[Rfam]
RNA sequence: UUUUCGGUAGUUUUUCUCAGGGUCCUGUCCUGAUAAAAGUUAGUGAAAAAUACUUCACUAACGUAGCGACUCGCCGUGGAUUGACACCGAGUUGAUACGUUUUUUU
Numbered sequence: 001u002u003u004u005c006g007g008u009a010g011u012u013u014u015u016c017u018c019a020g021g022g023u024c025c026u027g028u029c030c031u032g033a034u035a036a037a038a039g040u041u042a043g044u045g046a047a048a049a050a051u052a053c054u055u056c057a058c059u060a061a062c063g064u065a066g067c068g069a070c071u072c073g074c075c076g077u078g079g080a081u082u083g084a085c086a087c088c089g090a091g092u093u094g095a096u097a098c099g100u101u102u103u104u105u106u
Stems, first nucleotide, its partner, number of pairs: 002048005008042008017033003060101006067094007076087003

Rfam assigns this 106-nucleotide RNA sequence from Vagococcus coleopterorum to the family "23S methyl RNA motif".